About this RNA: The record is a 92-nucleotide RNA sequence from Serratia odorifera, which matches "RtT RNA" in Rfam. Rfam links the family to the GO term cellular response to amino acid starvation. Rfam describes the family as follows. This family represents a bacterial cis-regulatory element known as RtT RNA. The exact function of RtT is unknown although it is thought that it may be involved in changing the cellular response in relation to amino acid starvation. By type it is a cis-regulatory element. The literature on the family includes a 1991 paper in Nucleic Acids Res by Bosl and Kersten, "A novel RNA product of the tyrT operon of Escherichia coli".

RNA sequence: AGGAUGAGAACCGUCAAGGUUCGAGUCGAGCGCAAGUGAGACAACAUCACGUAGUGAUGGCCCGAAGGGCAAGGCGCAAGCCGCGUCAUCCU
Numbered sequence: 001a002g003g004a005u006g007a008g009a010a011c012c013g014u015c016a017a018g019g020u021u022c023g024a025g026u027c028g029a030g031c032g033c034a035a036g037u038g039a040g041a042c043a044a045c046a047u048c049a050c051g052u053a054g055u056g057a058u059g060g061c062c063c064g065a066a067g068g069g070c071a072a073g074g075c076g077c078a079a080g081c082c083g084c085g086u087c088a089u090c091c092u
Stems, first nucleotide, its partner, number of pairs: 001092003005088001015068001020066004027038002045059006